RNA sequence: CACGUCGAAGUUUCCCUCAGGAUAGCUGGUGCUUGUCUUUAAGAAGUAUUGUGCGGUAAAGCAAAUGAUUAGAGGCAUUGGUGUUCUUGUAAUAUCGACCUAUUCUCAAACUUUAAAUGUGCAAAAAACCCAGCCUUAGUUAUUUUAACAAGGCUUUUGGGUACAUAAGAAUUGAGGCACCAAGUGGGCCUUCUUCGGUAAGCGGAGCAGGCGAUGCGGAAUGAACCGCUUAGGGAUAUGUGGCGUCAAAACUUGUGGGCUCAUUCUCGAUACGUGAAAAGGGUGUUGGUGGAUAGGGACAGUUGGACGGUGGCCAUGGAAGUCGGCAUCCGCUAAGGAGUGUGUAACAACUCACCAACCGAAUCCACCGGCCCCGAAAAUGGAUGACGCUUAAGCCCCAUGUGCGUGAUUGCCCAUUAUUCCUUUGGUGAGGGCGGCUAUAUUUCUUUGUGAGAAAGUGUAGCCCUCCCGAUGUAGACGUGGCGUGGGGGUGAGGACGAAGCCGAUGGCGCGAGCCUCGGAUGGACCCGCCUCUAGUGCAGAU
Numbered sequence: 001c002a003c004g005u006c007g008a009a010g011u012u013u014c015c016c017u018c019a020g021g022a023u024a025g026c027u028g029g030u031g032c033u034u035g036u037c038u039u040u041a042a043g044a045a046g047u048a049u050u051g052u053g054c055g056g057u058a059a060a061g062c063a064a065a066u067g068a069u070u071a072g073a074g075g076c077a078u079u080g081g082u083g084u085u086c087u088u089g090u091a092a093u094a095u096c097g098a099c100c101u102a103u104u105c106u107c108a109a110a111c112u113u114u115a116a117a118u119g120u121g122c123a124a125a126a127a128a129c130c131c132a133g134c135c136u137u138a139g140u141u142a143u144u145u146u147a148a149c150a151a152g153g154c155u156u157u158u159g160g161g162u163a164c165a166u167a168a169g170a171a172u173u174g175a176g177g178c179a180c181c182a183a184g185u186g187g188g189c190c191u192u193c194u195u196c197g198g199u200a201a202g203c204g205g206a207g208c209a210g211g212c213g214a215u216g217c218g219g220a221a222u223g224a225a226c227c228g229c230u231u232a233g234g235g236a237u238a239u240g241u242g243g244c245g246u247c248a249a250a251a252c253u254u255g256u257g258g259g260c261u262c263a264u265u266c267u268c269g270a271u272a273c274g275u276g277a278a279a280a281g282g283g284u285g286u287u288g289g290u291g292g293a294u295a296g297g298g299a300c301a302g303u304u305g306g307a308c309g310g311u312g313g314c315c316a317u318g319g320a321a322g323u324c325g326g327c328a329u330c331c332g333c334u335a336a337g338g339a340g341u342g343u344g345u346a347a348c349a350a351c352u353c354a355c356c357a358a359c360c361g362a363a364u365c366c367a368c369c370g371g372c373c374c375c376g377a378a379a380a381u382g383g384a385u386g387a388c389g390c391u392u393a394a395g396c397c398c399c400a401u402g403u404g405c406g407u408g409a410u411u412g413c414c415c416a417u418u419a420u421u422c423c424u425u426u427g428g429u430g431a432g433g434g435c436g437g438c439u440a441u442a443u444u445u446c447u448u449u450g451u452g453a454g455a456a457a458g459u460g461u462a463g464c465c466c467u468c469c470c471g472a473u474g475u476a477g478a479c480g481u482g483g484c485g486u487g488g489g490g491g492u493g494a495g496g497a498c499g500a501a502g503c504c505g506a507u508g509g510c511g512c513g514a515g516c517c518u519c520g521g522a523u524g525g526a527c528c529c530g531c532c533u534c535u536a537g538u539g540c541a542g543a544u
Stems, first nucleotide, its partner, number of pairs: 001482006011024001013022003027182007047126001049124006059114001060112002066108003071103001073101003078098006085091001128162004132155005188212004193207005217228003232424005238418001242414003251411001258397003281375003285372010302359005308332003313327003333337001338353001342351002425472004430468005484539001486536008495527001502523001503521001508517003
Background
The family of this 544-nucleotide part of an RNA from Trypanosoma brucei is "Eukaryotic large subunit ribosomal RNA". Taxonomically the source falls in Trypanosoma brucei brucei (Eukaryota, Discoba, Kinetoplastea, Trypanozoon). For this family Rfam cites "Crystal structure of the ribosome at 5.5 A resolution" (Yusupov et al., Science, 2001). A search with the family's covariance model found it, with a score of 1995 bits.